[Rfam]
Nucleotides: 094
Base pairs, nucleotide, nucleotide: 001094002093003092004091005090006089007088008087011033012032013031014030015029023080024079025078026077027076035061036044037043038042066086067085068084069083070082
Number, partner (000 for none) and nucleotide at each position: 001094g002093c003092u004091a005090u006089u007088u008087g009000a010000g011033g012032u013031g014030g015029u016000a017000g018000a019000u020000u021000u022000c023080g024079u025078c026077c027076g028000g029015a030014c031013c032012a033011c034000a035061c036044g037043c038042c039000g040000c041000c042038g043037g044036c045000a046000a047000g048000a049000c050000a051000g052000g053000g054000a055000a056000a057000c058000c059000g060000a061035g062000a063000g064000a065000u066086g067085c068084a069083g070082g071000a072000g073000a074000a075000g076027c077026g078025g079024a080023c081000g082070c083069c084068u085067g086066c087008c088007g089006g090005a091004u092003a093002g094001c
Shown here is a 94-nucleotide RNA, a member of the family "skipping-rope RNA". By type it is a small RNA.